The family of this 259-nucleotide sequence from Listeria grayi is "Listeria Hfq binding LhrA". Pairs were carried over by alignment from the consensus structure, which is taken from published work. From the family's description: This RNA was identifed by screening for RNA molecules which co-immunoprecipitated with the RNA chaperone Hfq. The literature on the family includes a 2006 paper in RNA by Christiansen et al., "Identification of small Hfq-binding RNAs in Listeria monocytogenes".
RNA sequence: GAGAUAGGAACUUUUCCUGAUGAAAGUAAAGAAGGUUCUUUAUUUUCAUGGGGACGAGUCCCUAUCAUGAUUAUAGUGGUGCAGACGUAUCCAUCUUCCAAUAGAGUCUAUAAUUGCUAUUAUAGAUUUUUUAACGUCAAACCAUUAUUUGUUUUCAUUCAUCUCAUUUGCCAUGUAUUCUUGUUUGCGCCUCAUCCCGUUAUGCGCAGACGUAUAGACAUGAUGGCGACGCUGAAAUUAUUUUCAGCGUAUUUUUUUU
Numbered sequence: 001g002a003g004a005u006a007g008g009a010a011c012u013u014u015u016c017c018u019g020a021u022g023a024a025a026g027u028a029a030a031g032a033a034g035g036u037u038c039u040u041u042a043u044u045u046u047c048a049u050g051g052g053g054a055c056g057a058g059u060c061c062c063u064a065u066c067a068u069g070a071u072u073a074u075a076g077u078g079g080u081g082c083a084g085a086c087g088u089a090u091c092c093a094u095c096u097u098c099c100a101a102u103a104g105a106g107u108c109u110a111u112a113a114u115u116g117c118u119a120u121u122a123u124a125g126a127u128u129u130u131u132u133a134a135c136g137u138c139a140a141a142c143c144a145u146u147a148u149u150u151g152u153u154u155u156c157a158u159u160c161a162u163c164u165c166a167u168u169u170g171c172c173a174u175g176u177a178u179u180c181u182u183g184u185u186u187g188c189g190c191c192u193c194a195u196c197c198c199g200u201u202a203u204g205c206g207c208a209g210a211c212g213u214a215u216a217g218a219c220a221u222g223a224u225g226g227c228g229a230c231g232c233u234g235a236a237a238u239u240a241u242u243u244u245c246a247g248c249g250u251a252u253u254u255u256u257u258u259u
Stems, first nucleotide, its partner, number of pairs: 003066005010059004015053004020049009030039003073148008084138005100130002103127001170227005179218003182212009229250005235244003